[Rfam]
RNA sequence: AGCUUUGCGCAGUGGCAGUAUCAUAGCCAAUGAGGUUUAUCCGAGGCGCGAUUAUUGCUAAUUGAAAACUUUUCCCAAUACCCCGCCGUGACGACUUGAAAAAAGCGUAUGAGCACUGAGUGUUAUAUGCAACUAAUGAAUCACUGAAUACUGC
Numbered sequence: 001a002g003c004u005u006u007g008c009g010c011a012g013u014g015g016c017a018g019u020a021u022c023a024u025a026g027c028c029a030a031u032g033a034g035g036u037u038u039a040u041c042c043g044a045g046g047c048g049c050g051a052u053u054a055u056u057g058c059u060a061a062u063u064g065a066a067a068a069c070u071u072u073u074c075c076c077a078a079u080a081c082c083c084c085g086c087c088g089u090g091a092c093g094a095c096u097u098g099a100a101a102a103a104a105g106c107g108u109a110u111g112a113g114c115a116c117u118g119a120g121u122g123u124u125a126u127a128u129g130c131a132a133c134u135a136a137u138g139a140a141u142c143a144c145u146g147a148a149u150a151c152u153g154c
Base pairs, nucleotide, nucleotide: 020052021051022050024048026047027046028045034042035041085130086129088126089125090124091123092122093121096118144153146151
RNA: U4 spliceosomal RNA
Organism: Enhydra lutris